[Rfam]
MIR2593 microRNA precursor family: a 112-nucleotide sequence from Trifolium medium. The family has 7 seed sequences and 1,262 matches in Rfam 15.1. Taxonomically the source falls in Trifolium (Eukaryota, Streptophytina, Embryophyta, Euphyllophyta).
RNA sequence: UUAUAAGAAGAAGUUUACUUUUUAGAUUCAUAGAAUGUUUGAUGUACUUGGUCUAUAUUAUGAACUAGAUACAUCAAACAUUCUAUGAACCUAAAAAGUAAACUUCUUAUAA
Numbered sequence: 001u002u003a004u005a006a007g008a009a010g011a012a013g014u015u016u017a018c019u020u021u022u023u024a025g026a027u028u029c030a031u032a033g034a035a036u037g038u039u040u041g042a043u044g045u046a047c048u049u050g051g052u053c054u055a056u057a058u059u060a061u062g063a064a065c066u067a068g069a070u071a072c073a074u075c076a077a078a079c080a081u082u083c084u085a086u087g088a089a090c091c092u093a094a095a096a097a098g099u100a101a102a103c104u105u106c107u108u109a110u111a112a
Stems, first nucleotide, its partner, number of pairs: 002111006012104002015101011027089018049067004
Dot-bracket structure: .((((((....((.(((((((((((.((((((((((((((((((....((((...........))))....)))))))))))))))))).))))))))))).)).)))))).